[Rfam]
RNA sequence: UGCCUACUGAACUGGUAUCAGUGUGAACUCUGAGUACUGGCUCAGUUCAGCAGGAAC
Numbered sequence: 001u002g003c004c005u006a007c008u009g010a011a012c013u014g015g016u017a018u019c020a021g022u023g024u025g026a027a028c029u030c031u032g033a034g035u036a037c038u039g040g041c042u043c044a045g046u047u048c049a050g051c052a053g054g055a056a057c
Base pairs, nucleotide, nucleotide: 001056003054004053005052007050008049009048010047011046012045013044014043015042018040019039020038021037022036
The family of this 57-nucleotide RNA from Salmo salar is "mir-24 microRNA precursor family". Rfam's curators write: This family represents the microRNA (miRNA) mir-24 family. miRNAs are transcribed as ~70nt precursors (modelled here) and subsequently processed by the Dicer enzyme to give a ~22nt product. In this case the mature sequence comes from the 3' arm of the precursor. It is one of the family's seed sequences. A reference for the family is Lagos-Quintana et al. (2001), "Identification of novel genes coding for small expressed RNAs", Science. Rfam 15.1 lists 1,372 matches to the family in 601 species.